[Rfam]
RNA sequence: CUUCAGACUUCGUGCUUCUUUGCAUACCCAUACUGUAUUAGGAUAUGGAAUGUAAAGAAGUAUGUAGUUUGGCC
Numbered sequence: 001c002u003u004c005a006g007a008c009u010u011c012g013u014g015c016u017u018c019u020u021u022g023c024a025u026a027c028c029c030a031u032a033c034u035g036u037a038u039u040a041g042g043a044u045a046u047g048g049a050a051u052g053u054a055a056a057g058a059a060g061u062a063u064g065u066a067g068u069u070u071g072g073c074c
Stems, first nucleotide, its partner, number of pairs: 007068003011064015028048005